Rfam assigns this 82-nucleotide RNA from Rhododendron williamsianum to the family "Small nucleolar RNA SNORD34".
Rfam 15.1 lists 1,319 matches to the family in 583 species.
Rfam describes the family as follows. snoRNA U34 is found in intron 5 of the ribosomal protein L13a gene in humans.
By type it is a C/D-box small nucleolar RNA.
Rfam links the family to the GO terms RNA processing and nucleolus.
The match comes from Rfam's covariance-model search (45 bits).
RNA sequence: UGAGGCCUAUGAUGGAUUUGAACAUUUGCCUACAUUGUCCGAUUGUUUAUGACGGAGAAUUUGAAACAGUUCUGAGGCCUCU
Numbered sequence: 001u002g003a004g005g006c007c008u009a010u011g012a013u014g015g016a017u018u019u020g021a022a023c024a025u026u027u028g029c030c031u032a033c034a035u036u037g038u039c040c041g042a043u044u045g046u047u048u049a050u051g052a053c054g055g056a057g058a059a060u061u062u063g064a065a066a067c068a069g070u071u072c073u074g075a076g077g078c079c080u081c082u
Stems, first nucleotide, its partner, number of pairs: 002081001004079004

Clan: SNORD34 clan.